Overview
Singlet oxygen resistance RNA X: a 71-nucleotide RNA sequence from Actibacterium lipolyticum. By type it is a small RNA. The base pairs follow the family's consensus structure. About the family: SorX (RSs2461)like SorY is a singlet oxygen induced sRNA that counteracts oxidative stress by targeting mRNA for a transporter in Rhodobacter. It also has an impact on resistance against organic hydroperoxides. It scores 78 bits against the family's covariance model. A reference for the family is Berghoff et al. (2009), "Photooxidative stress-induced and abundant small RNAs in Rhodobacter sphaeroides", Mol Microbiol. Gene Ontology term of the family: response to photooxidative stress.

RNA sequence: AUCCCUUCCAUGCCGGGGUUAUGGCAUGACCUCCCUGUUGGACUGACCCGGCUUCGCGCCGGGUCUUUUUU
Dot-bracket structure: ........((((((........))))))................((((((((.....))))))))......
Numbered sequence: 001a002u003c004c005c006u007u008c009c010a011u012g013c014c015g016g017g018g019u020u021a022u023g024g025c026a027u028g029a030c031c032u033c034c035c036u037g038u039u040g041g042a043c044u045g046a047c048c049c050g051g052c053u054u055c056g057c058g059c060c061g062g063g064u065c066u067u068u069u070u071u
Stems, first nucleotide, its partner, number of pairs: 009028006045065008